[Rfam]
RNA sequence: ACCUAAGGUAGAGGUGCUAUAAGCAAUAAGUACUUAUUAUGAGCUGGCAAGCUAUGAUUAAUUUAGGAAAGGUGCUAUGGCCGAAGGAAGAAAUUAUGCAAAGAUUUGUUUCUGGGGAUGCAUAGAAUAUAUGUAUAACUGUCACGAAAGUGGAGAGCUACAAAGGUU
Number, nucleotide and partner (000 for none) at each position: 001a000002c000003c000004u000005a000006a000007g000008g161009u160010a159011g158012a000013g000014g000015u000016g081017c080018u079019a078020u077021a076022a000023g075024c074025a073026a000027u000028a000029a000030g000031u000032a000033c066034u065035u000036a062037u061038u060039a059040u000041g000042a000043g000044c000045u000046g000047g000048c000049a000050a000051g000052c000053u000054a000055u000056g000057a000058u000059u039060a038061a037062u036063u000064u000065a034066g033067g000068a000069a000070a000071g000072g000073u025074g024075c023076u021077a020078u019079g018080g017081c016082c000083g000084a000085a113086g112087g111088a110089a109090g000091a107092a106093a105094u104095u103096a000097u000098g000099c000100a000101a000102a000103g095104a094105u093106u092107u091108g000109u089110u088111u087112c086113u085114g140115g139116g000117g000118a136119u135120g134121c133122a132123u131124a130125g000126a000127a000128u000129a000130u124131a123132u122133g121134u120135a119136u118137a000138a000139c115140u114141g000142u153143c152144a151145c150146g000147a000148a000149a000150g145151u144152g143153g142154a000155g000156a000157g000158c011159u010160a009161c008162a000163a000164a000165g000166g000167u000168u000
The record is a 168-nucleotide RNA sequence from Clostridium neonatale, which matches "Lysine riboswitch aptamer" in Rfam. A reference for the family is Sudarsan et al. (2003), "An mRNA structure in bacteria that controls gene expression by binding lysine", Genes Dev. Taxonomically the source falls in Clostridium (Bacteria, Bacillati, Clostridia, Eubacteriales).